[Rfam]
RNA: Small nucleolar RNA snoR74
RNA sequence: AAAAAAGCAGGGGCUUGUUGCCAAUGUGAACAAGUCUCUCGUGAAUGUCAGGGGAACUAAUUGCAUUGUUCUUGGGUGAGUCUUUAAAGGCAGUGCCAAUGACUCAAGGUUCAGUGAAUGAUGCUACAUGG
Numbered sequence: 001a002a003a004a005a006a007g008c009a010g011g012g013g014c015u016u017g018u019u020g021c022c023a024a025u026g027u028g029a030a031c032a033a034g035u036c037u038c039u040c041g042u043g044a045a046u047g048u049c050a051g052g053g054g055a056a057c058u059a060a061u062u063g064c065a066u067u068g069u070u071c072u073u074g075g076g077u078g079a080g081u082c083u084u085u086a087a088a089g090g091c092a093g094u095g096c097c098a099a100u101g102a103c104u105c106a107a108g109g110u111u112c113a114g115u116g117a118a119u120g121a122u123g124c125u126a127c128a129u130g131g
Base pairs, nucleotide, nucleotide: 005048007046011037012036014034015033016032017031064123065122066121067120068119069118070117077113078112079111080110081109082108083107
Dot-bracket structure: ....(.(...((.((((.............)))).))........).)...............(((((((......(((((((.......................)))))))...)))))))........